[Rfam]
RNA sequence: GUUCACAGCGAGUUUUGCAGGAUUGCAUCCAGUUUGAAAAUCCCUGCUGUGCAAAUCCAUGCAAAACUCGUCGUGCCC
Numbered sequence: 001g002u003u004c005a006c007a008g009c010g011a012g013u014u015u016u017g018c019a020g021g022a023u024u025g026c027a028u029c030c031a032g033u034u035u036g037a038a039a040a041u042c043c044c045u046g047c048u049g050u051g052c053a054a055a056u057c058c059a060u061g062c063a064a065a066a067c068u069c070g071u072c073g074u075g076c077c078c
Stems, first nucleotide, its partner, number of pairs: 004075003008071012020058002023054006031048003
RNA: mir-19 microRNA precursor family
Organism: Conger conger